RNA sequence: CCCGCCGAGGGGCGCUGCGACCGUACGGACAUCCGCCUGACACCAGGCCGGGGCGACGGCCAGGCUCGGCGCGUGUCUUCAUGUUCAACGGCGCCCGGCGACA
Number, nucleotide and partner (000 for none) at each position: 001c000002c000003c071004g070005c069006c068007g067008a066009g000010g000011g000012g000013c000014g000015c000016u000017g000018c000019g000020a000021c059022c058023g057024u056025a000026c000027g000028g000029a000030c000031a000032u000033c000034c000035g000036c000037c000038u000039g000040a000041c000042a000043c000044c000045a000046g000047g000048c000049c000050g000051g000052g000053g000054c000055g000056a024057c023058g022059g021060c000061c000062a000063g000064g000065c000066u008067c007068g006069g005070c004071g003072c000073g000074u000075g000076u000077c000078u000079u000080c000081a000082u000083g000084u000085u000086c000087a000088a000089c000090g000091g000092c000093g000094c000095c000096c000097g000098g000099c000100g000101a000102c000103a000
SAH (S-adenosyl-L-homocysteine) riboswitch aptamer: a 103-nucleotide RNA sequence from Xanthomonas sp. XNM01. The family's consensus secondary structure is taken from published work. The source organism's lineage runs through Bacteria, Pseudomonadota, Gammaproteobacteria, Lysobacterales and Xanthomonas. It scores 51 bits against the family's covariance model.